Clostridiales-1 RNA: a 171-nucleotide sequence from Firmicutes bacterium CAG:424. Pairs were carried over by alignment from the consensus structure, which is taken from published work. It is annotated as a small RNA.
[Rfam]
RNA sequence: AAAUGUCAGGGUCAAAAGGCCAUAAACCACAUUGUGCUUGCAUAUAAGGGGUUUUAUGCCUUUAUGAUCCGCUCCCAAAAUGAGAAUGAAAGUGGGGUGUACGCACCACGAUAUUUGAAUUUUGGGGCAGGAUUGUGAGAGCAUGAAGUGCGGAACAAUCCGCAGACAUGC
Numbered sequence: 001a002a003a004u005g006u007c008a009g010g011g012u013c014a015a016a017a018g019g020c021c022a023u024a025a026a027c028c029a030c031a032u033u034g035u036g037c038u039u040g041c042a043u044a045u046a047a048g049g050g051g052u053u054u055u056a057u058g059c060c061u062u063u064a065u066g067a068u069c070c071g072c073u074c075c076c077a078a079a080a081u082g083a084g085a086a087u088g089a090a091a092g093u094g095g096g097g098u099g100u101a102c103g104c105a106c107c108a109c110g111a112u113a114u115u116u117g118a119a120u121u122u123u124g125g126g127g128c129a130g131g132a133u134u135g136u137g138a139g140a141g142c143a144u145g146a147a148g149u150g151c152g153g154a155a156c157a158a159u160c161c162g163c164a165g166a167c168a169u170g171c
Base pairs, nucleotide, nucleotide: 003169004168005167006166007165010069011068012067013066016062017061018060019059020058024054025053026052027051028050030048033044034043035042036041074126075125076124077123078122079121080120081119084116085115086114087113092109093108094107095106097104098103130161131160132159133158134157135156136155141151142150143149144148